Nucleotides: 439
Base pairs, nucleotide, nucleotide: 001439002438003437004436009431010430013359014358015357016356017355018354019353023078024077025076026075036059037058038057039056040055041053088422089421090420091419092418097327098326099325100324190201191200192199204220205219206218207217208216222323223322224321225320244308360410361409362408363407364406365405366404367403368402369401370400371399372398373397374396375395
Number, partner (000 for none) and nucleotide at each position: 001439g002438c003437c004436c005000u006000c007000u008000u009431c010430a011000a012000c013359g014358c015357u016356g017355c018354g019353u020000u021000u022000c023078c024077a025076u026075g027000c028000u029000a030000c031000a032000a033000a034000c035000a036059g037058a038057g039056a040055g041053c042000c043000u044000g045000c046000g047000c048000a049000a050000g051000c052000a053041g054000c055040u056039u057038c058037u059036c060000g061000c062000u063000u064000u065000a066000c067000c068000u069000c070000u071000u072000u073000u074000g075026c076025a077024u078023g079000u080000g081000g082000g083000a084000a085000a086000u087000u088422c089421g090420g091419a092418g093000a094000a095000u096000g097327c098326u099325u100324c101000a102000a103000a104000g105000c106000a107000g108000g109000a110000g111000g112000g113000g114000a115000u116000u117000c118000c119000u120000c121000g122000u123000g124000u125000u126000c127000c128000u129000c130000u131000c132000c133000u134000g135000c136000g137000c138000u139000c140000g141000u142000u143000c144000c145000a146000c147000g148000u149000c150000g151000c152000c153000u154000g155000u156000c157000u158000u159000c160000g161000c162000g163000g164000c165000c166000g167000g168000c169000g170000c171000c172000c173000g174000u175000g176000u177000g178000c179000a180000a181000a182000u183000c184000g185000a186000g187000u188000c189000u190201g191200c192199c193000u194000g195000u196000g197000a198000u199192g200191g201190c202000c203000u204220g205219g206218c207217g208216u209000c210000a211000c212000c213000c214000c215000g216208a217207c218206g219205u220204c221000u222323g223322c224321a225320a226000c227000a228000g229000a230000u231000a232000u233000c234000a235000g236000a237000a238000a239000u240000c241000u242000c243000g244308g245000g246000c247000c248000c249000g250000g251000g252000a253000g254000a255000a256000c257000c258000u259000c260000g261000u262000g263000u264000g265000c266000a267000u268000a269000c270000c271000u272000c273000u274000c275000g276000g277000g278000g279000g280000a281000a282000g283000a284000c285000a286000u287000g288000g289000g290000g291000g292000g293000c294000u295000g296000c297000g298000u299000c300000c301000c302000g303000g304000c305000g306000c307000c308244c309000a310000u311000g312000g313000g314000a315000a316000g317000u318000c319000g320225u321224u322223g323222c324100g325099a326098a327097g328000c329000u330000u331000g332000u333000u334000g335000c336000g337000c338000g339000a340000a341000c342000u343000u344000g345000a346000g347000u348000g349000c350000g351000a352000u353019a354018c355017g356016c357015a358014g359013c360410g361409u362408u363407u364406g365405u366404u367403u368402u369401g370400u371399c372398a373397u374396u375395u376000u377000u378000u379000u380000u381000u382000u383000g384000a385000a386000a387000a388000a389000a390000a391000a392000u393000u394000c395375a396374a397373a398372u399371g400370a401369c402368a403367a404366g405365a406364u407363g408362a409361a410360u411000c412000a413000c414000a415000c416000a417000a418092u419091u420090c421089c422088g423000a424000u425000c426000a427000u428000u429000c430010u431009g432000u433000u434000g435000a436004g437003g438002g439001c
Rfam assigns this 439-nucleotide RNA from Trichoderma cornu-damae to the family "Nuclear RNase P". The source organism's lineage runs through Eukaryota, saccharomyceta, Pezizomycotina, leotiomyceta and Trichoderma. For this family Rfam cites "The Ribonuclease P Database" (Brown, Nucleic Acids Res, 1999).